[Rfam]
RNA sequence: AAUAGAGGUAGGCAAGAAAAGAACGCAACGUCCUGUUGCAAAUCUUGCCCCACUACAUCACGUAGC
Numbered sequence: 001a002a003u004a005g006a007g008g009u010a011g012g013c014a015a016g017a018a019a020a021g022a023a024c025g026c027a028a029c030g031u032c033c034u035g036u037u038g039c040a041a042a043u044c045u046u047g048c049c050c051c052a053c054u055a056c057a058u059c060a061c062g063u064a065g066c
Stems, first nucleotide, its partner, number of pairs: 011049007025039005053065004
Shown here is a 66-nucleotide RNA from Kurthia sp. 11kri321, a member of the family "Bacillaceae-1 RNA". The organism belongs to Kurthia, within Bacteria. Rfam classes the family as a small RNA. Pairs were carried over by alignment from the consensus structure, which is taken from published work.